The family of this 89-nucleotide RNA from Desulfuribacillus alkaliarsenatis is "c-di-GMP-I riboswitch aptamer".
RNA sequence: UCUCGAUAAAGGCAAAGCUGAUGAAAAUCAGUGACGCAAAGCUACAGGGGCUACAAUGCAUACGUGCAUUAUGCCAGCCAGCUACCGAA
Numbered sequence: 001u002c003u004c005g006a007u008a009a010a011g012g013c014a015a016a017g018c019u020g021a022u023g024a025a026a027a028u029c030a031g032u033g034a035c036g037c038a039a040a041g042c043u044a045c046a047g048g049g050g051c052u053a054c055a056a057u058g059c060a061u062a063c064g065u066g067c068a069u070u071a072u073g074c075c076a077g078c079c080a081g082c083u084a085c086c087g088a089a
Stems, first nucleotide, its partner, number of pairs: 012037002017032006040083004047079002049075003056069004
The match comes from Rfam's covariance-model search (79 bits). The source organism's lineage runs through Bacteria, Bacillati, Bacillota, Desulfuribacillaceae and Desulfuribacillus.